[Rfam]
RNA sequence: GGCUGGUCCAAGUGCAGUGGUAUUUACAACUAAUUGAUCAUAGUCAGUUACAGAUUUGUUUGUUCCUUGUCCUUUUCAUCUCCCACUGCUUCACUUGACUAGCCUAAA
Numbered sequence: 001g002g003c004u005g006g007u008c009c010a011a012g013u014g015c016a017g018u019g020g021u022a023u024u025u026a027c028a029a030c031u032a033a034u035u036g037a038u039c040a041u042a043g044u045c046a047g048u049u050a051c052a053g054a055u056u057u058g059u060u061u062g063u064u065c066c067u068u069g070u071c072c073u074u075u076u077c078a079u080c081u082c083c084c085a086c087u088g089c090u091u092c093a094c095u096u097g098a099c100u101a102g103c104c105u106a107a108a
Stems, first nucleotide, its partner, number of pairs: 001104008010096002014092001016087005028064003032060002
Annotation: A member of the RNA family "Y RNA" from Sapajus apella, 108 nucleotides long. The family's RNA type in Rfam is non-coding RNA gene. Lineage of the source: Eukaryota > Tetrapoda > Eutheria > Simiiformes > Sapajus.